Rfam assigns this 65-nucleotide RNA to the family "RAGATH-18 RNA". Rfam's curators write: Actinobacteria, Firmicutes, Fusobacteria, Thermotogae (1 example). The family's RNA type in Rfam is small RNA. The sequence is in the family's curated seed alignment.

RNA sequence: CCUUGGGAGUGCUAAGACAAUACGAGUAGAGAUUUAUCUCCAAAGUAGGCACGUUGAAUAAGGAA
Dot-bracket structure: (((((...(((((.......(((.....(((......)))....))))))))......)))))..